[Rfam]
RNA sequence: UCUGGGAUAUGAUGAUAAAAAGAACGAAAGAUGUUGAUGGCACCUUUGCCGCGGAAACAAUCUUUUAUUUUGCACGUCAGUCUGAUCCUAUU
Numbered sequence: 001u002c003u004g005g006g007a008u009a010u011g012a013u014g015a016u017a018a019a020a021a022g023a024a025c026g027a028a029a030g031a032u033g034u035u036g037a038u039g040g041c042a043c044c045u046u047u048g049c050c051g052c053g054g055a056a057a058c059a060a061u062c063u064u065u066u067a068u069u070u071u072g073c074a075c076g077u078c079a080g081u082c083u084g085a086u087c088c089u090a091u092u
Base pairs, nucleotide, nucleotide: 003090004089005088006087007086

Small nucleolar RNA Z122: a 92-nucleotide sequence from Brassica oleracea. The family's RNA type in Rfam is C/D-box small nucleolar RNA. Rfam links the family to the GO terms nucleolus and RNA processing. The organism belongs to Brassica oleracea, within Eukaryota. It scores 50 bits against the family's covariance model.